The record is a 77-nucleotide RNA from Diabrotica balteata, which matches "mir-965 microRNA precursor family" in Rfam. The family has 16 seed sequences and 224 matches in Rfam 15.1. Rfam links the family to the GO terms RISC complex and miRNA-mediated post-transcriptional gene silencing. On this family, see Huang et al., Bioorg Khim 2012: "The regulation of silkworm fibroin L chain production by miRNA-965 and miRNA-1926 in insect cells".
RNA sequence: UUUUAAAAAGGAGAAGCUACAUGUUAUAUAUUUCUGUCUCCGGCUUCUAUAUAACAUGUAGCUUCUCCUUUUUAAAA
Numbered sequence: 001u002u003u004u005a006a007a008a009a010g011g012a013g014a015a016g017c018u019a020c021a022u023g024u025u026a027u028a029u030a031u032u033u034c035u036g037u038c039u040c041c042g043g044c045u046u047c048u049a050u051a052u053a054a055c056a057u058g059u060a061g062c063u064u065c066u067c068c069u070u071u072u073u074a075a076a077a
Base pairs, nucleotide, nucleotide: 003075004074005073006072007071009069010068011067013065014064017061018060019059020058021057024054025053027051028050029049030048